[Rfam]
RNA: Small nucleolar RNA Z155
RNA sequence: UUUUGAGGUGAUGAUAAUUGUUUGAGAAUUUUAAUAUGUCCAUUUAGAACAAUCAGACUACAAUUAUCUGAUCAAAC
Numbered sequence: 001u002u003u004u005g006a007g008g009u010g011a012u013g014a015u016a017a018u019u020g021u022u023u024g025a026g027a028a029u030u031u032u033a034a035u036a037u038g039u040c041c042a043u044u045u046a047g048a049a050c051a052a053u054c055a056g057a058c059u060a061c062a063a064u065u066a067u068c069u070g071a072u073c074a075a076a077c
Stems, first nucleotide, its partner, number of pairs: 002076005